[Rfam]
RNA sequence: CGGACCCGUCGCGACUGGCGUUCGGAUGGGUCACCAUCGGGGAGCGACUCACACGGUUGGUGGCCGUACGCCUGGGCCACGACG
Numbered sequence: 001c002g003g004a005c006c007c008g009u010c011g012c013g014a015c016u017g018g019c020g021u022u023c024g025g026a027u028g029g030g031u032c033a034c035c036a037u038c039g040g041g042g043a044g045c046g047a048c049u050c051a052c053a054c055g056g057u058u059g060g061u062g063g064c065c066g067u068a069c070g071c072c073u074g075g076g077c078c079a080c081g082a083c084g
Stems, first nucleotide, its partner, number of pairs: 008048005015041002017072005026037004061079005
Dot-bracket structure: .......(((((..(([[[[[....((((....))))..))..)))))............(((((..]]]]]..))))).....
Rfam assigns this 84-nucleotide RNA from Clavibacter michiganensis to the family "ZMP/ZTP riboswitch aptamer (pfl RNA motif)". Pairs were carried over by alignment from the consensus structure, which is taken from published work. Taxonomically the source falls in Clavibacter michiganensis subsp. michiganensis (Bacteria, Actinomycetota, Micrococcales, Microbacteriaceae). Rfam links the family to the GO terms one-carbon metabolic process and regulation of purine nucleotide biosynthetic process.